[Rfam]
RNA: mir-19 microRNA precursor family
Organism: Conger conger
RNA sequence: GGGAGCGGUCAGUUUUGCAGGUUUGCAUCCAGCGUGUGGAAAUUGUGCUGUGCAAAUCCAUGCAAAACUCGCCGUGCCC
Numbered sequence: 001g002g003g004a005g006c007g008g009u010c011a012g013u014u015u016u017g018c019a020g021g022u023u024u025g026c027a028u029c030c031a032g033c034g035u036g037u038g039g040a041a042a043u044u045g046u047g048c049u050g051u052g053c054a055a056a057u058c059c060a061u062g063c064a065a066a067a068c069u070c071g072c073c074g075u076g077c078c079c
Base pairs, nucleotide, nucleotide: 003077005075006074007073008072009071011069012068013067014066015065016064017063018062019061020059021058022056023055024054025053026052027051028050031049032048033047